[Rfam]
RNA: Purine riboswitch aptamer
Organism: Bacillus sp. NRRL B-14911
RNA sequence: UCAUAAUUUAAUAUGCACCUUCAUAUAUCCUCGAUAAUACGGUUCGAAAGUCUCUACCAGGUCACCUUAAAUGACUUGACUAUGAAGGCAGGUCAUUCUAUA
Numbered sequence: 001u002c003a004u005a006a007u008u009u010a011a012u013a014u015g016c017a018c019c020u021u022c023a024u025a026u027a028u029c030c031u032c033g034a035u036a037a038u039a040c041g042g043u044u045c046g047a048a049a050g051u052c053u054c055u056a057c058c059a060g061g062u063c064a065c066c067u068u069a070a071a072u073g074a075c076u077u078g079a080c081u082a083u084g085a086a087g088g089c090a091g092g093u094c095a096u097u098c099u100a101u102a
Base pairs, nucleotide, nucleotide: 018088019087020086021085022084023083024082025081031047032046033045034044058078059077060076061075062074063073064072